[Rfam]
RNA sequence: UGCGGUGAUGAUAUAAGCUUUUCUCUUAUCCAGUGUUCAGUGACAGCUGCCUGCUGUCAGCAUCUGGCGCUGUUGAACUGAAGACACUUGAUGCUGUGCA
Numbered sequence: 001u002g003c004g005g006u007g008a009u010g011a012u013a014u015a016a017g018c019u020u021u022u023c024u025c026u027u028a029u030c031c032a033g034u035g036u037u038c039a040g041u042g043a044c045a046g047c048u049g050c051c052u053g054c055u056g057u058c059a060g061c062a063u064c065u066g067g068c069g070c071u072g073u074u075g076a077a078c079u080g081a082a083g084a085c086a087c088u089u090g091a092u093g094c095u096g097u098g099c100a
Stems, first nucleotide, its partner, number of pairs: 001100003021082001024081002031072005040064001042058005
Record summary:
Small nucleolar RNA SNORD16: a 100-nucleotide sequence from Gopherus evgoodei. Lineage of the source: Eukaryota > Eumetazoa > Euteleostomi > Dipnotetrapodomorpha > Gopherus. Clan: SNORD16 clan. The family's consensus secondary structure was predicted with PFOLD.